[Rfam]
This 127-nucleotide RNA sequence from Neotoma lepida belongs to the Rfam family "Small nucleolar RNA SNORA77". Rfam links the family to the GO terms RNA processing and nucleolus. Pairs were carried over by alignment from the consensus structure, which was predicted with RNAalifold. Rfam classes the family as an H/ACA-box small nucleolar RNA. A reference for the family is Schattner et al. (2006), "A computational screen for mammalian pseudouridylation guide H/ACA RNAs", RNA. Rfam describes the family as follows. ACA63 (SNORA77) is a member of the H/ACA class of snoRNAs that guide the sites of modification of uridines to pseudouridines. This snoRNA was identified by computational screening and its expression in mouse experimentally verified by Northern blot and primer extension analysis.

RNA sequence: GCAGAUUCACUCUGCACCUGGCUGCAGCUCCAGUCUGGUGCUUUUUCUGUCUGCCAAAUAAACAUUCCAGGGUGCUGUGGCUGCCUCUGUCUAGCUGGGGCUCAUGCAGCUGCCUGGGGACAUGGUA
Numbered sequence: 001g002c003a004g005a006u007u008c009a010c011u012c013u014g015c016a017c018c019u020g021g022c023u024g025c026a027g028c029u030c031c032a033g034u035c036u037g038g039u040g041c042u043u044u045u046u047c048u049g050u051c052u053g054c055c056a057a058a059u060a061a062a063c064a065u066u067c068c069a070g071g072g073u074g075c076u077g078u079g080g081c082u083g084c085c086u087c088u089g090u091c092u093a094g095c096u097g098g099g100g101c102u103c104a105u106g107c108a109g110c111u112g113c114c115u116g117g118g119g120a121c122a123u124g125g126u127a
Stems, first nucleotide, its partner, number of pairs: 001054006014041005020035001022033003066118006074110006083101004